[Rfam]
RNA sequence: GUUGACCUUACAGCAAAUUAUCAUUCUACAGGAAGAAAACCAUUGUCAACUG
Number, nucleotide and partner (000 for none) at each position: 001g050002u049003u048004g047005a046006c045007c000008u000009u000010a000011c000012a000013g000014c000015a000016a000017a000018u000019u000020a000021u000022c000023a000024u000025u000026c000027u000028a000029c000030a000031g000032g000033a000034a000035g000036a000037a000038a000039a000040c000041c000042a000043u000044u000045g006046u005047c004048a003049a002050c001051u000052g000